[Rfam]
RNA sequence: GAAAGAUCGGAUUAUACUUUGUCCGGUUGGGCCGAUAGAGUAUCUGGCCCCAAUCAAA
Numbered sequence: 001g002a003a004a005g006a007u008c009g010g011a012u013u014a015u016a017c018u019u020u021g022u023c024c025g026g027u028u029g030g031g032c033c034g035a036u037a038g039a040g041u042a043u044c045u046g047g048c049c050c051c052a053a054u055c056a057a058a
Stems, first nucleotide, its partner, number of pairs: 005028008029050005
Shown here is a 58-nucleotide sequence from Butyrivibrio sp. INlla14, a member of the family "S4-Clostridia ribosomal protein leader".
The match comes from Rfam's covariance-model search (38 bits).
On this family, see Eckert and Weinberg, BMC Microbiol 2020: "Discovery of 20 novel ribosomal leader candidates in bacteria and archaea".
NCBI's taxonomy places the organism under Bacteria, Bacillati, Bacillota, Lachnospiraceae, Butyrivibrio.